A member of the RNA family "Small nucleolar RNA ACA64" from Odobenus rosmarus, 126 nucleotides long. The match comes from Rfam's covariance-model search (106 bits). By type it is an H/ACA-box small nucleolar RNA. Rfam links the family to the GO terms nucleolus and RNA processing. Lineage of the source: Eukaryota > Mammalia > Odobenidae > Odobenus > Odobenus rosmarus. On this family, see Schattner et al., RNA 2006: "A computational screen for mammalian pseudouridylation guide H/ACA RNAs".
[Rfam]
RNA sequence: AUUGGUUAAAAAUCACCUGCAGCUUUGGCUAUGCCUGUGGGUGAGAUUUGGCACCCAGAGCCACAGGAGGCCUCAGCUCACUGCCUCUCAUGGGUGUGGGGAGGUGAAACCCAGGCCCCAACCUGC
Numbered sequence: 001a002u003u004g005g006u007u008a009a010a011a012a013u014c015a016c017c018u019g020c021a022g023c024u025u026u027g028g029c030u031a032u033g034c035c036u037g038u039g040g041g042u043g044a045g046a047u048u049u050g051g052c053a054c055c056c057a058g059a060g061c062c063a064c065a066g067g068a069g070g071c072c073u074c075a076g077c078u079c080a081c082u083g084c085c086u087c088u089c090a091u092g093g094g095u096g097u098g099g100g101g102a103g104g105u106g107a108a109a110c111c112c113a114g115g116c117c118c119c120a121a122c123c124u125g126c
Stems, first nucleotide, its partner, number of pairs: 005052006013044004021036002024033001067119001069117005078107005087096001